[Rfam]
RNA sequence: UGGCACCCAGCAAGUGGGGCUCGAGUAUGGGGGCUUCAGUGAAGAAUGCCUUGGUGUUUCUGUUCGGCUGAUUUUGUGUGGAAGGCGUUCUGCAAGGGAGCCUGCUGCCCUGACUAGGGAUCCCCGUUAGUCUGCAGUGAUCAUGGGACAGGCACUUAGUAGCCAUGAACUCUUUGUGGAAGGUUUGAAAAGGGCUUUAAAGGCUCAAGGGAUAAAGGUUAAAAGACUUGAAUUUUCUUUGAUUUUGUAAAAGAGAUUUGUCCAU
Numbered sequence: 001u002g003g004c005a006c007c008c009a010g011c012a013a014g015u016g017g018g019g020c021u022c023g024a025g026u027a028u029g030g031g032g033g034c035u036u037c038a039g040u041g042a043a044g045a046a047u048g049c050c051u052u053g054g055u056g057u058u059u060c061u062g063u064u065c066g067g068c069u070g071a072u073u074u075u076g077u078g079u080g081g082a083a084g085g086c087g088u089u090c091u092g093c094a095a096g097g098g099a100g101c102c103u104g105c106u107g108c109c110c111u112g113a114c115u116a117g118g119g120a121u122c123c124c125c126g127u128u129a130g131u132c133u134g135c136a137g138u139g140a141u142c143a144u145g146g147g148a149c150a151g152g153c154a155c156u157u158a159g160u161a162g163c164c165a166u167g168a169a170c171u172c173u174u175u176g177u178g179g180a181a182g183g184u185u186u187g188a189a190a191a192g193g194g195c196u197u198u199a200a201a202g203g204c205u206c207a208a209g210g211g212a213u214a215a216a217g218g219u220u221a222a223a224a225g226a227c228u229u230g231a232a233u234u235u236u237c238u239u240u241g242a243u244u245u246u247g248u249a250a251a252a253g254a255g256a257u258u259u260g261u262c263c264a265u
Base pairs, nucleotide, nucleotide: 006033007032008031012028014026038051039049040048084125085124089120090118091117093112094111096109097108135151137149138148141146156199158197159195160194206241207240208239209238210237211236212235216229217228218227219226220225250265253262254261

The family of this 265-nucleotide RNA sequence from Mus spicilegus is "Mason-Pfizer monkey virus packaging signal". The source organism's lineage runs through Eukaryota, Gnathostomata, Amniota, Muridae and Mus. This family represents a group of sequences that are related to the Mason-Pfizer monkey virus (MPMV) packaging signal. The packaging signal is located in the 5' UTR and is required for specific RNA encapsidation. For this family Rfam cites "Mutational analysis of the predicted secondary RNA structure of the Mason-Pfizer monkey virus packaging signal" (Mustafa et al., Virus Res, 2004). The family's RNA type in Rfam is cis-regulatory element. A search with the family's covariance model found it, with a score of 70 bits.